[Rfam]
The record is a 158-nucleotide RNA sequence from Glycine max, which matches "MIR4371 microRNA precursor family" in Rfam.
Gene Ontology terms of the family: RISC complex and miRNA-mediated post-transcriptional gene silencing.

RNA sequence: UUGUUAAGUAAUAAUGUGGCAGACGGAGUGUCAAGUCAUCACGCCUAAUCAGUGACACGUCAGUGCCACGUCAAUGAAGGUGGUGAUGUGACAAUGAGAUGUUUGUGACAAAGUGUGAUGAUAUGACACUUCAUCUGUCAUGUCAUCACCUAACGCAA
Numbered sequence: 001u002u003g004u005u006a007a008g009u010a011a012u013a014a015u016g017u018g019g020c021a022g023a024c025g026g027a028g029u030g031u032c033a034a035g036u037c038a039u040c041a042c043g044c045c046u047a048a049u050c051a052g053u054g055a056c057a058c059g060u061c062a063g064u065g066c067c068a069c070g071u072c073a074a075u076g077a078a079g080g081u082g083g084u085g086a087u088g089u090g091a092c093a094a095u096g097a098g099a100u101g102u103u104u105g106u107g108a109c110a111a112a113g114u115g116u117g118a119u120g121a122u123a124u125g126a127c128a129c130u131u132c133a134u135c136u137g138u139c140a141u142g143u144c145a146u147c148a149c150c151u152a153a154c155g156c157a158a
Stems, first nucleotide, its partner, number of pairs: 002155005008149002011146002014143010025132009035122010046111001049108003054103004070087004